This 109-nucleotide sequence belongs to the Rfam family "Streptomyces RNA 4115".

RNA sequence: GCGUGGGUCGGCCCGCUGCGCUGGAGUCAGUGGGCUGGGGGACACCGCCGCCUCCAUCCCCGCGGGCGGCGGACCGGUCCGGGAGGCGAACACCGCCUCCCGGGCUGUG
Number, nucleotide and partner (000 for none) at each position: 001g108002c107003g000004u000005g000006g075007g074008u073009c037010g036011g035012c034013c033014c032015g031016c030017u029018g028019c000020g000021c000022u000023g000024g000025a000026g000027u000028c018029a017030g016031u015032g014033g013034g012035c011036u010037g009038g043039g000040g000041g000042a000043c038044a000045c072046c071047g070048c069049c068050g067051c066052c065053u064054c000055c062056a000057u000058c000059c000060c000061c000062g055063c000064g053065g052066g051067c050068g049069g048070c047071g046072g045073a008074c007075c006076g106077g105078u104079c103080c102081g101082g100083g099084a098085g097086g096087c095088g094089a000090a000091c000092a000093c000094c088095g087096c086097c085098u084099c083100c082101c081102g080103g079104g078105c077106u076107g002108u001109g000
Record summary: It scores 108 bits against the family's covariance model. Rfam classes the family as a small RNA. Identified by deep sequencing of transcriptome at the end of exponential growth phase. Sequencing size consistent with notrthern blot size. Streptomyces specific. Pairs were carried over by alignment from the consensus structure.